Overview:
Rfam assigns this 89-nucleotide RNA sequence from Laribacter hongkongensis to the family "sRNA-Xcc1". For this family Rfam cites "Genome-wide transcriptome analysis of the plant pathogen Xanthomonas identifies sRNAs with putative virulence functions" (Schmidtke et al., Nucleic Acids Res, 2011).
[Rfam]
Nucleotides: 089
Stems, first nucleotide, its partner, number of pairs: 001081009013049003016045002026040006051066005
Number, partner (000 for none) and nucleotide at each position: 001081g002080g003079g004078c005077g006076a007075g008074a009073g010000u011000g012000c013049g014048a015047c016045u017044a018000a019000u020000a021000c022000a023000a024000c025000a026040c027039c028038g029037g030036c031035a032000a033000g034000c035031u036030g037029c038028c039027g040026g041000g042000a043000a044017u045016a046000c047015g048014u049013c050000c051066g052065c053064c054063g055062u056000c057000u058000u059000g060000u061000u062055g063054c064053g065052g066051u067000u068000u069000u070000g071000a072000g073009c074008u075007c076006u077005c078004g079003c080002c081001c082000a083000c084000c085000c086000c087000g088000u089000c